RNA: Bacterial RNase P class A
RNA sequence: CAGGCCGGUCGGAUGAUCGCGGUCUCGCCAGGCGCGAGACUGAGGAAAGUCCGCACUCCACAGAGCACGGUGCCGGGUAAUACCCGGGGCGGGGUAACUCGCCGGAUAGGGCCACAGAAACAGGUAGCCCUCGCCACCCCUGAGGGGGAGCGAGUGGUGAUAGUGAAAAGGUGGUGUAAGAGACCACCAGCGCCUGUAGUAAUACAGGCGGCUAGGUAACCCCCACCGGGAGCAAGGCCAAGCAGGGGCAAAGCCCGCGUCAGCGGGCGGGAGGUGGCUCGCCUCCCUGGAGCCCCGGGUAGGCCGCUAGAGCGAGUCGGUAACGGCUCGCCCAGAUAGAUGAUCAUCCCGGCCGGUGCCGUCUCUGGGCUGACCAGAGAUACCCACCGGACGGACAGAAUGCGGCUUAUAGACCGACCUGGAGC
Numbered sequence: 001c002a003g004g005c006c007g008g009u010c011g012g013a014u015g016a017u018c019g020c021g022g023u024c025u026c027g028c029c030a031g032g033c034g035c036g037a038g039a040c041u042g043a044g045g046a047a048a049g050u051c052c053g054c055a056c057u058c059c060a061c062a063g064a065g066c067a068c069g070g071u072g073c074c075g076g077g078u079a080a081u082a083c084c085c086g087g088g089g090c091g092g093g094g095u096a097a098c099u100c101g102c103c104g105g106a107u108a109g110g111g112c113c114a115c116a117g118a119a120a121c122a123g124g125u126a127g128c129c130c131u132c133g134c135c136a137c138c139c140c141u142g143a144g145g146g147g148g149a150g151c152g153a154g155u156g157g158u159g160a161u162a163g164u165g166a167a168a169a170g171g172u173g174g175u176g177u178a179a180g181a182g183a184c185c186a187c188c189a190g191c192g193c194c195u196g197u198a199g200u201a202a203u204a205c206a207g208g209c210g211g212c213u214a215g216g217u218a219a220c221c222c223c224c225a226c227c228g229g230g231a232g233c234a235a236g237g238c239c240a241a242g243c244a245g246g247g248g249c250a251a252a253g254c255c256c257g258c259g260u261c262a263g264c265g266g267g268c269g270g271g272a273g274g275u276g277g278c279u280c281g282c283c284u285c286c287c288u289g290g291a292g293c294c295c296c297g298g299g300u301a302g303g304c305c306g307c308u309a310g311a312g313c314g315a316g317u318c319g320g321u322a323a324c325g326g327c328u329c330g331c332c333c334a335g336a337u338a339g340a341u342g343a344u345c346a347u348c349c350c351g352g353c354c355g356g357u358g359c360c361g362u363c364u365c366u367g368g369g370c371u372g373a374c375c376a377g378a379g380a381u382a383c384c385c386a387c388c389g390g391a392c393g394g395a396c397a398g399a400a401u402g403c404g405g406c407u408u409a410u411a412g413a414c415c416g417a418c419c420u421g422g423a424g425c
Stems, first nucleotide, its partner, number of pairs: 001421004006416005011410001012348007020042009047408003051405005056232004063280004068228005073087005089103001090101004104223002109221002111217003125162002127158003130154005170188006190212001191210008236305004245296005271285005312331008